[Rfam]
RNA sequence: AGGCAGCCUCUAUGCUUGAUUUAACCGCAUAUGAAGGUGUUAAUUUGCCCAUAAAUAAAAAUCUUUUGCUCUUCUGACUUGCUGAGAAGAAUAGUAUUCUUCUUUGAAGCUUGGCUAGUAAGCCUAAGUUAAGU
Numbered sequence: 001a002g003g004c005a006g007c008c009u010c011u012a013u014g015c016u017u018g019a020u021u022u023a024a025c026c027g028c029a030u031a032u033g034a035a036g037g038u039g040u041u042a043a044u045u046u047g048c049c050c051a052u053a054a055a056u057a058a059a060a061a062u063c064u065u066u067u068g069c070u071c072u073u074c075u076g077a078c079u080u081g082c083u084g085a086g087a088a089g090a091a092u093a094g095u096a097u098u099c100u101u102c103u104u105u106g107a108a109g110c111u112u113g114g115c116u117a118g119u120a121a122g123c124c125u126a127a128g129u130u131a132a133g134u
Stems, first nucleotide, its partner, number of pairs: 002041004007037002009034002011031005063128003068123003076115001078113001081110003086102005